[Rfam]
RNA: TPP riboswitch aptamer (THI element)
RNA sequence: UAUGCAUACUAGGGGGGCUGGAAUAAGGCCGGCUGAGAUCGUAUCCCGUGAAGAUACUGACCCUUACACCUGAUCUGGGUAAUGCCAGCGUAGGAAUGAGAAUGGCGUCGCACCA
Numbered sequence: 001u002a003u004g005c006a007u008a009c010u011a012g013g014g015g016g017g018c019u020g021g022a023a024u025a026a027g028g029c030c031g032g033c034u035g036a037g038a039u040c041g042u043a044u045c046c047c048g049u050g051a052a053g054a055u056a057c058u059g060a061c062c063c064u065u066a067c068a069c070c071u072g073a074u075c076u077g078g079g080u081a082a083u084g085c086c087a088g089c090g091u092a093g094g095a096a097u098g099a100g101a102a103u104g105g106c107g108u109c110g111c112a113c114c115a
Stems, first nucleotide, its partner, number of pairs: 006103002009100002011064004016058001017033005041057004069094004075088004